The family of this 119-nucleotide sequence from Firmicutes bacterium CAG:475 is "FMN riboswitch aptamer (RFN element)". A search with the family's covariance model found it, with a score of 104 bits. The family's consensus secondary structure is taken from published work. The organism belongs to Bacillota, within Bacteria.

RNA sequence: AAUUUGCUUCAGGGCGAGGUGCAAAUCCUCACCGGCGGUAUAGUCCGCGAACACGCGAUGCGUGCCGACAAGGUGCAAUUCCUUGACCGACGGUAUAGUCCGGACGAAAGAAGCGACGU
Numbered sequence: 001a002a003u004u005u006g007c008u009u010c011a012g013g014g015c016g017a018g019g020u021g022c023a024a025a026u027c028c029u030c031a032c033c034g035g036c037g038g039u040a041u042a043g044u045c046c047g048c049g050a051a052c053a054c055g056c057g058a059u060g061c062g063u064g065c066c067g068a069c070a071a072g073g074u075g076c077a078a079u080u081c082c083u084u085g086a087c088c089g090a091c092g093g094u095a096u097a098g099u100c101c102g103g104a105c106g107a108a109a110g111a112a113g114c115g116a117c118g119u
Base pairs, nucleotide, nucleotide: 004116005115006114007113008112009111010110017029018028019027031099032098033089034088035048036047037046038045043087044086052064053063069085070084071083072082073081091102092101093100